[Rfam]
RNA sequence: GGAAGAUCGUCGUUUCCGGUGAAGCGGCUGGACUUCAAAUCCAGAUAGGGCCGCCAGCGGUCCUGGGCAGGUUCGACUCCUGUGAUCUUCC
Numbered sequence: 001g002g003a004a005g006a007u008c009g010u011c012g013u014u015u016c017c018g019g020u021g022a023a024g025c026g027g028c029u030g031g032a033c034u035u036c037a038a039a040u041c042c043a044g045a046u047a048g049g050g051c052c053g054c055c056a057g058c059g060g061u062c063c064u065g066g067g068c069a070g071g072u073u074c075g076a077c078u079c080c081u082g083u084g085a086u087c088u089u090c091c
Stems, first nucleotide, its partner, number of pairs: 001091009011026006028044005047064005068082004
This 91-nucleotide RNA from Mangrovibacter sp. MFB070 belongs to the Rfam family "Selenocysteine transfer RNA". The match comes from Rfam's covariance-model search (80 bits). NCBI's taxonomy places the organism under Bacteria, Pseudomonadota, Gammaproteobacteria, Enterobacteriaceae, Mangrovibacter. Rfam links the family to the GO term triplet codon-amino acid adaptor activity.